[Rfam]
RNA sequence: AGUCGAAAAGGGCAACCUUGUCGAAAGACAAUGGACGCAAAGCUGCAGGCCUAAUGGUCGGAUGACCGAUGGCGGCUGGGCUGCCGAA
Numbered sequence: 001a002g003u004c005g006a007a008a009a010g011g012g013c014a015a016c017c018u019u020g021u022c023g024a025a026a027g028a029c030a031a032u033g034g035a036c037g038c039a040a041a042g043c044u045g046c047a048g049g050c051c052u053a054a055u056g057g058u059c060g061g062a063u064g065a066c067c068g069a070u071g072g073c074g075g076c077u078g079g080g081c082u083g084c085c086g087a088a
Stems, first nucleotide, its partner, number of pairs: 012038002017033001018031005041082004046078003049073003056067004
A member of the RNA family "c-di-GMP-I riboswitch aptamer" from Paenibacillus ginsengarvi, 88 nucleotides long. Its family is annotated with cyclic-di-GMP binding in the Gene Ontology. A search with the family's covariance model found it, with a score of 74 bits. The family's consensus secondary structure is taken from published work.